[Rfam]
RNA sequence: CAGUGAUUUCAGCUCUUUUAGUAUUUGUCUAGUAGGUUUUCCGCUGCGCGGAAAGCCUCU
Numbered sequence: 001c002a003g004u005g006a007u008u009u010c011a012g013c014u015c016u017u018u019u020a021g022u023a024u025u026u027g028u029c030u031a032g033u034a035g036g037u038u039u040u041c042c043g044c045u046g047c048g049c050g051g052a053a054a055g056c057c058u059c060u
Stems, first nucleotide, its partner, number of pairs: 035057010
RNA: U7 small nuclear RNA
Organism: Chloroceryle aenea